This 111-nucleotide RNA from Shewanella sp. P1-14-1 belongs to the Rfam family "TPP riboswitch aptamer (THI element)". It scores 73 bits against the family's covariance model. Vitamin B(1) in its active form thiamin pyrophosphate (TPP) is an essential coenzyme that is synthesised by coupling of pyrimidine and thiazole moieties in bacteria. The previously detected thiamin-regulatory element, thi box was extended, resulting in a new, highly conserved RNA secondary structure, the THI element, which is widely distributed in eubacteria and also occurs in some archaea. Analysis of operon structures identified a large number of new candidate thiamin-regulated genes, mostly transporters, in various prokaryotic organisms. The THI element is a riboswitch that directly binds to TPP to regulate gene expression through a variety of mechanisms in archaea, bacteria and eukaryotes. through a variety of mechanisms in archaea, bacteria and eukaryotes. The base pairs follow the family's consensus structure, which is taken from published work. Rfam links the family to the GO term thiamine pyrophosphate binding.
Nucleotides: 111
Stems, first nucleotide, its partner, number of pairs: 008097003011061004016055001017038005045054003067092004073086004
Number, partner (000 for none) and nucleotide at each position: 001000c002000g003000c004000c005000u006000c007000g008097c009096c010095a011061a012060g013059g014058g015000g016055u017038g018037u019036u020035u021034g022000c023000g024000u025000u026000u027000u028000u029000u030000u031000u032000a033000g034021u035020a036019a037018a038017c039000u040000g041000a042000g043000a044000u045054g046053u047052c048000u049000u050000a051000u052047g053046a054045c055016a056000a057000a058014c059013c060012c061011u062000u063000a064000g065000a066000a067092c068091c069090u070089g071000a072000u073086c074085c075084g076083g077000c078000u079000a080000a081000u082000a083076c084075c085074g086073g087000c088000g089070u090069a091068g092067g093000a094000a095010u096009g097008g098000g099000c100000u101000g102000c103000a104000u105000g106000c107000u108000u109000u110000a111000c